[Rfam]
RNA: mir-8338 microRNA precursor family
Organism: Pristionchus pacificus
RNA sequence: AUCUGCCACUACUAACCGUGUCGUACUCACUACUACACGACACGGUUAGUAGUGGCAGAUG
Numbered sequence: 001a002u003c004u005g006c007c008a009c010u011a012c013u014a015a016c017c018g019u020g021u022c023g024u025a026c027u028c029a030c031u032a033c034u035a036c037a038c039g040a041c042a043c044g045g046u047u048a049g050u051a052g053u054g055g056c057a058g059a060u061g
Stems, first nucleotide, its partner, number of pairs: 001060024